A member of the RNA family "Streptomyces sRNA 4677" from Streptomyces sp. RP5T, 147 nucleotides long. Rfam describes the family as follows. Located in the intergenic region between anti-sigma factor SCO4677 gene and a putative regulatory protein gene SCO4676. scr4677 expression requires the SCO4677 activity and scr4677 sRNA itself seem to affect the levels of the SCO4676-associated transcripts. Taxonomically the source falls in Streptomyces (Bacteria, Actinomycetota, Kitasatosporales, Streptomycetaceae). The match comes from Rfam's covariance-model search (59 bits). The literature on the family includes a 2014 paper in PLoS One by Hindra et al., "Complex intra-operonic dynamics mediated by a small RNA in Streptomyces coelicolor". It is annotated as a small RNA.
RNA sequence: GCUCGCGUCACUCGUCCGAGUGACCGGCUUGCAGGGUGGGGAUACGGGCGGUUACGUUCGCCGCGACAACAGCACACAGACUUCGGCCCCCGGCCGGGAUUGCCGUCCCGAUCGAGGGCCUGACCGAUCAGGAAGAACCGCUUCCCG
Numbered sequence: 001g002c003u004c005g006c007g008u009c010a011c012u013c014g015u016c017c018g019a020g021u022g023a024c025c026g027g028c029u030u031g032c033a034g035g036g037u038g039g040g041g042a043u044a045c046g047g048g049c050g051g052u053u054a055c056g057u058u059c060g061c062c063g064c065g066a067c068a069a070c071a072g073c074a075c076a077c078a079g080a081c082u083u084c085g086g087c088c089c090c091c092g093g094c095c096g097g098g099a100u101u102g103c104c105g106u107c108c109c110g111a112u113c114g115a116g117g118g119c120c121u122g123a124c125c126g127a128u129c130a131g132g133a134a135g136a137a138c139c140g141c142u143u144c145c146c147g
Stems, first nucleotide, its partner, number of pairs: 008023006035062005085120005091114002096109004131145005